[Rfam]
RNA sequence: ACACGUUCUCGGGGCGGGGUGAAAUUCCCCACCGGCGGUAAUCGUCUUUGCACAAGACGUAGCCCGCGAGCGCUCUGUUUGGGCAGCCACAACGGCAGUUAAACAGAGGUCAGCAGACCCGGUUGGAUUCCGGGGCCGACGGUCAUAGUCCGGAUGAAAGAGAACAGGA
Numbered sequence: 001a002c003a004c005g006u007u008c009u010c011g012g013g014g015c016g017g018g019g020u021g022a023a024a025u026u027c028c029c030c031a032c033c034g035g036c037g038g039u040a041a042u043c044g045u046c047u048u049u050g051c052a053c054a055a056g057a058c059g060u061a062g063c064c065c066g067c068g069a070g071c072g073c074u075c076u077g078u079u080u081g082g083g084c085a086g087c088c089a090c091a092a093c094g095g096c097a098g099u100u101a102a103a104c105a106g107a108g109g110u111c112a113g114c115a116g117a118c119c120c121g122g123u124u125g126g127a128u129u130c131c132g133g134g135g136c137c138g139a140c141g142g143u144c145a146u147a148g149u150c151c152g153g154a155u156g157a158a159a160g161a162g163a164a165c166a167g168g169a
Stems, first nucleotide, its partner, number of pairs: 005165006017029003031149002033138002035067004062136002070114002118134005140152003
Shown here is a 169-nucleotide sequence from Burkholderia sp. SRS-W-2-2016, a member of the family "FMN riboswitch aptamer (RFN element)". Rfam's curators write: The RFN element is a highly conserved domain that is found frequently in the 5'-untranslated regions of prokaryotic mRNAs that encode for flavin mononucleotide (FMN) biosynthesis and transport proteins. The match comes from Rfam's covariance-model search (109 bits). The source organism's lineage runs through Bacteria, Pseudomonadota, Betaproteobacteria, Burkholderiaceae and Burkholderia.